Rfam assigns this 59-nucleotide sequence from Streptomyces turgidiscabies to the family "msiK RNA". Pairs were carried over by alignment from the consensus structure, which is taken from published work. The match comes from Rfam's covariance-model search (56 bits). Lineage of the source: Bacteria > Actinomycetota > Actinomycetes > Streptomycetaceae > Streptomyces turgidiscabies. Rfam classes the family as a cis-regulatory element.
[Rfam]
RNA sequence: CUACACCACCUUCCACUACGGAUCGUCCGGCACGUUCCUGCCGGUGAAGGGGGCCUAGU
Number, nucleotide and partner (000 for none) at each position: 001c000002u000003a000004c000005a000006c000007c000008a000009c051010c050011u049012u048013c000014c046015a045016c000017u000018a000019c000020g000021g000022a000023u000024c000025g000026u000027c044028c043029g042030g041031c040032a039033c000034g000035u000036u000037c000038c000039u032040g031041c030042c029043g028044g027045u015046g014047a000048a012049g011050g010051g009052g000053g000054c000055c000056u000057a000058g000059u000